[Rfam]
RNA sequence: UCCAUCGUGAGGUGGAAUCUGAAGGAAGCUGGAUGUGGAGGCUGCGAAGUGCCGACACGGGCAAACUCCCGGUCUGACGAACAGAAAUCGCAUAUGAGGCAAUGCAAAGCGGACGAGUCUGCCAUACAAGACAAAGUCCAAUACUGCCCGAACUUUGCAUUGUAAAUGCGGCAGAUAUAUGGGAGGAAGGUUAUUGCU
Numbered sequence: 001u002c003c004a005u006c007g008u009g010a011g012g013u014g015g016a017a018u019c020u021g022a023a024g025g026a027a028g029c030u031g032g033a034u035g036u037g038g039a040g041g042c043u044g045c046g047a048a049g050u051g052c053c054g055a056c057a058c059g060g061g062c063a064a065a066c067u068c069c070c071g072g073u074c075u076g077a078c079g080a081a082c083a084g085a086a087a088u089c090g091c092a093u094a095u096g097a098g099g100c101a102a103u104g105c106a107a108a109g110c111g112g113a114c115g116a117g118u119c120u121g122c123c124a125u126a127c128a129a130g131a132c133a134a135a136g137u138c139c140a141a142u143a144c145u146g147c148c149c150g151a152a153c154u155u156u157g158c159a160u161u162g163u164a165a166a167u168g169c170g171g172c173a174g175a176u177a178u179a180u181g182g183g184a185g186g187a188a189g190g191u192u193a194u195u196g197c198u
Stems, first nucleotide, its partner, number of pairs: 001016006054198001056196002061191002066185006072176005088171006099163003103159007111139004117132004
Annotation: Shown here is a 198-nucleotide sequence from Pseudoflavonifractor sp. An176, a member of the family "Group II catalytic intron D1-D4-3". The family has 406 seed sequences and 4,274 matches in Rfam 15.1.